[Rfam]
RNA: mir-223 microRNA precursor family
Organism: Takifugu bimaculatus
RNA sequence: GUUUGAUGACCAGGCCCCUCACUUAGUGUAUUUGACAAGCUGUUCUUGACACUCUUUAUAUGCGAGUGUCAGUUUGUCAAAUACCCCAAGUGAGGUGUCACUUGUC
Numbered sequence: 001g002u003u004u005g006a007u008g009a010c011c012a013g014g015c016c017c018c019u020c021a022c023u024u025a026g027u028g029u030a031u032u033u034g035a036c037a038a039g040c041u042g043u044u045c046u047u048g049a050c051a052c053u054c055u056u057u058a059u060a061u062g063c064g065a066g067u068g069u070c071a072g073u074u075u076g077u078c079a080a081a082u083a084c085c086c087c088a089a090g091u092g093a094g095g096u097g098u099c100a101c102u103u104g105u106c
Stems, first nucleotide, its partner, number of pairs: 020092004026086001028084014048070004053065002